Shown here is a 111-nucleotide RNA sequence from Thermosipho melanesiensis, a member of the family "TPP riboswitch aptamer (THI element)". Rfam 15.1 lists 16,130 matches to the family in 8,693 species. Lineage of the source: Bacteria > Thermotogota > Thermotogae > Fervidobacteriaceae > Thermosipho melanesiensis. The family's consensus secondary structure is taken from published work.

RNA sequence: AGAAAACCCGAGGGGAGCUCCAUAAGCCGGGGCUGAGAGGAAGGCGGAAGUCUUCGACCCUUAGAACCUGAACCGGGUAAUACCGGCGGAGGGACGGGUAGAGAAAAUUUC
Numbered sequence: 001a002g003a004a005a006a007c008c009c010g011a012g013g014g015g016a017g018c019u020c021c022a023u024a025a026g027c028c029g030g031g032g033c034u035g036a037g038a039g040g041a042a043g044g045c046g047g048a049a050g051u052c053u054u055c056g057a058c059c060c061u062u063a064g065a066a067c068c069u070g071a072a073c074c075g076g077g078u079a080a081u082a083c084c085g086g087c088g089g090a091g092g093g094a095c096g097g098g099u100a101g102a103g104a105a106a107a108u109u110u111c
Base pairs, nucleotide, nucleotide: 006099007098008097009096010095011061012060013059014058017033018032019031020030021029040055041054042053043052044051067092068091069090073086074085075084076083